[Rfam]
RNA: c-di-GMP-II-GAG riboswitch aptamer
RNA sequence: UCUCUCAUUGGGAGCUAAGACCUGUCAAAUCAAUCUGGUCACCUUUAAUAAUAUUGACAGCGAGCUAAUGGUGAAACCGACCAAACAAAUU
Numbered sequence: 001u002c003u004c005u006c007a008u009u010g011g012g013a014g015c016u017a018a019g020a021c022c023u024g025u026c027a028a029a030u031c032a033a034u035c036u037g038g039u040c041a042c043c044u045u046u047a048a049u050a051a052u053a054u055u056g057a058c059a060g061c062g063a064g065c066u067a068a069u070g071g072u073g074a075a076a077c078c079g080a081c082c083a084a085a086c087a088a089a090u091u
Stems, first nucleotide, its partner, number of pairs: 003089001005087001008084004013066003022060007037078002039074005
Dot-bracket structure: ..(.(..((((.(((......(((((((........[[[[[[[..........)))))))...)))...]]]]]..]]..))))..).)..